The record is a 134-nucleotide sequence from Anisodus acutangulus, which matches "MIR7993 microRNA precursor family" in Rfam. The base pairs follow the family's consensus structure, which was predicted with RNAalifold.

RNA sequence: AUAAGUUAAUCACUUAAAAUAUGUCACCUCCUUUAGUGAUAUGUGUUAGCCUCAGUAAAACCUCAGGUCUGUUCCAGUUGAGGCUAACACAUAUAGUUAAAGGAGGUGAUAUAUUUUAAAUGGUUAACUUAUCU
Dot-bracket structure: ((((((((((((.((((((((((((..((((((((((.(((((((((.((((............................)))).))))))))).))))))))))..)))))))))))).))))))))))))..